[Rfam]
RNA sequence: AUUGCCGUGAGGUGGUGUCUGAAGGAGAUGCGGAAAAUCGAGAGACCCGUAGUCGGACAUGCAGACCCUAAUGCAGAAGUGUAAAGCGCGGCGGCACGAUGAGUUGGUGACCAUCCGAAAAUAAUGGGAAACCCAUAAAGAUGGCUAGCCAAAGAAUCAGCCGACUAGCCAUAGCUCACCGUGUGUUGGUGCUGGGUAUGUAUGGAAGGAAAGUGCA
Numbered sequence: 001a002u003u004g005c006c007g008u009g010a011g012g013u014g015g016u017g018u019c020u021g022a023a024g025g026a027g028a029u030g031c032g033g034a035a036a037a038u039c040g041a042g043a044g045a046c047c048c049g050u051a052g053u054c055g056g057a058c059a060u061g062c063a064g065a066c067c068c069u070a071a072u073g074c075a076g077a078a079g080u081g082u083a084a085a086g087c088g089c090g091g092c093g094g095c096a097c098g099a100u101g102a103g104u105u106g107g108u109g110a111c112c113a114u115c116c117g118a119a120a121a122u123a124a125u126g127g128g129a130a131a132c133c134c135a136u137a138a139a140g141a142u143g144g145c146u147a148g149c150c151a152a153a154g155a156a157u158c159a160g161c162c163g164a165c166u167a168g169c170c171a172u173a174g175c176u177c178a179c180c181g182u183g184u185g186u187u188g189g190u191g192c193u194g195g196g197u198a199u200g201u202a203u204g205g206a207a208g209g210a211a212a213g214u215g216c217a
Stems, first nucleotide, its partner, number of pairs: 001016006048215003053210002058204005064199001065197004086192004094184003098180001100178005106133003111127004

Rfam assigns this 217-nucleotide RNA from Lentibacillus salicampi to the family "Group II catalytic intron D1-D4-3". A search with the family's covariance model found it, with a score of 33 bits. Taxonomically the source falls in Lentibacillus (Bacteria, Bacillati, Bacillota, Caryophanales). The pairing is the family consensus, mapped onto this sequence. On this family, see Bonen and Vogel, Trends Genet 2001: "The ins and outs of group II introns".